About this RNA:
The family of this 125-nucleotide RNA from Enterococcus sp. PFB1-1 is "Ribosomal protein L10 leader". This family is a putative r-protein leader autoregulatory structure found in B. subtilis and other low-GC Gram-positive bacteria. It is located in the 5' untranslated regions of mRNAs encoding ribosomal proteins L10 and L12 (rplJ-rplL). Pairs were carried over by alignment from the consensus structure, which was predicted with CMfinder. It is annotated as a cis-regulatory leader. Its family is annotated with regulation of gene expression in the Gene Ontology. The match comes from Rfam's covariance-model search (76 bits).
[Rfam]
RNA sequence: UUAAAAAAUUUAACUGUACCGAAGACAGUAGGUGGUUUUACCUUAAUUUCCUACCGAGGACACAUGUUGAGAAAUUCAAUGGUCCCUCUAUGUCUACGGUGGCAUAGGGUUAUUUUUGUUUUUUU
Number, nucleotide and partner (000 for none) at each position: 001u000002u000003a000004a000005a000006a000007a000008a000009u000010u000011u000012a000013a000014c000015u000016g000017u000018a000019c000020c000021g000022a000023a000024g000025a000026c000027a000028g054029u053030a052031g051032g050033u000034g042035g041036u040037u000038u000039u000040a036041c035042c034043u000044u000045a000046a000047u000048u000049u000050c032051c031052u030053a029054c028055c000056g000057a000058g000059g000060a000061c000062a000063c000064a000065u000066g000067u000068u000069g000070a000071g000072a000073a000074a000075u000076u000077c000078a000079a000080u000081g000082g000083u000084c000085c000086c109087u108088c107089u106090a105091u104092g103093u102094c101095u000096a000097c000098g000099g000100u000101g094102g093103c092104a091105u090106a089107g088108g087109g086110u000111u000112a000113u000114u000115u000116u000117u000118g000119u000120u000121u000122u000123u000124u000125u000